[Rfam]
RNA sequence: UAAAGACACGGUGAUGGGGUUCCACCGUGACCUUUCGGUCAAAACCGCACUAUGCUAAUGACUCCUACAGAAAC
Numbered sequence: 001u002a003a004a005g006a007c008a009c010g011g012u013g014a015u016g017g018g019g020u021u022c023c024a025c026c027g028u029g030a031c032c033u034u035u036c037g038g039u040c041a042a043a044a045c046c047g048c049a050c051u052a053u054g055c056u057a058a059u060g061a062c063u064c065c066u067a068c069a070g071a072a073a074c
Base pairs, nucleotide, nucleotide: 010026011025012024013023016065017064018063019062020061021060047055048054